[Rfam]
Nucleotides: 126
Stems, first nucleotide, its partner, number of pairs: 006018004021060001023058001026055007038046002082113001086109002090104002093101003
Number, partner (000 for none) and nucleotide at each position: 001000a002000c003000c004000a005000c006018c007017c008016u009015u010000u011000u012000c013000u014000u015009g016008g017007g018006g019000u020000u021060g022000g023058g024000c025000u026055a027054c028053u029052g030051u031050u032049c033000a034000a035000u036000g037000a038046g039045c040000a041000c042000a043000u044000a045039g046038u047000g048000a049032g050031g051030g052029c053028a054027g055026u056000g057000c058023u059000g060021c061000u062000a063000a064000c065000a066000c067000c068000u069000a070000c071000a072000c073000a074000a075000a076000a077000u078000u079000c080000c081000u082113g083000c084000a085000u086109c087108a088000g089000c090104u091103a092000c093101a094100g095099c096000g097000u098000u099095g100094c101093u102000u103091u104090a105000c106000c107000u108087u109086g110000c111000c112000a113082c114000a115000g116000u117000u118000u119000c120000u121000g122000g123000a124000c125000a126000a
The family of this 126-nucleotide RNA from Rhinopithecus roxellana is "U4atac minor spliceosomal RNA". Rfam describes the family as follows. U4atac is an essential component of the minor U12-type spliceosome complex which is required for removal of the rarer class of eukaryotic introns (AT-AC, U12-type). The match comes from Rfam's covariance-model search (78 bits). Clan: U4 clan. Pairs were carried over by alignment from the consensus structure, which is taken from published work. Gene Ontology terms of the family: pre-mRNA 5'-splice site binding, U4atac snRNP and mRNA 5'-splice site recognition. For this family Rfam cites "Evolutionary conservation of minor U12-type spliceosome between plants and humans" (Lorkovic et al., RNA, 2005). The family's RNA type in Rfam is spliceosomal small nuclear RNA.